[Rfam]
The record is a 54-nucleotide RNA from Salvelinus namaycush, which matches "UnaL2 LINE 3' element" in Rfam.
The base pairs follow the family's consensus structure, which is taken from published work.
Taxonomically the source falls in Salvelinus (Eukaryota, Metazoa, Vertebrata, Gnathostomata).
It is annotated as a cis-regulatory element.
RNA sequence: CUAUUAACUAACUGUACGUCACUCUGGAUAAGAGCGUCUGCUAAAUGACUAACA
Numbered sequence: 001c002u003a004u005u006a007a008c009u010a011a012c013u014g015u016a017c018g019u020c021a022c023u024c025u026g027g028a029u030a031a032g033a034g035c036g037u038c039u040g041c042u043a044a045a046u047g048a049c050u051a052a053c054a
Stems, first nucleotide, its partner, number of pairs: 013043001014041003020036001022034004